[Rfam]
RNA sequence: GUUUCCGAGGAGCGCUGCAAGGUAGCGGGCCGGACCGAAGAUCGUCCAGCCCCGGCCCUAGGCUCGGAAUUCUCCAACGGCGCUCACCGAAC
Numbered sequence: 001g002u003u004u005c006c007g008a009g010g011a012g013c014g015c016u017g018c019a020a021g022g023u024a025g026c027g028g029g030c031c032g033g034a035c036c037g038a039a040g041a042u043c044g045u046c047c048a049g050c051c052c053c054g055g056c057c058c059u060a061g062g063c064u065c066g067g068a069a070u071u072c073u074c075c076a077a078c079g080g081c082g083c084u085c086a087c088c089g090a091a092c
Stems, first nucleotide, its partner, number of pairs: 003069006021057003025053001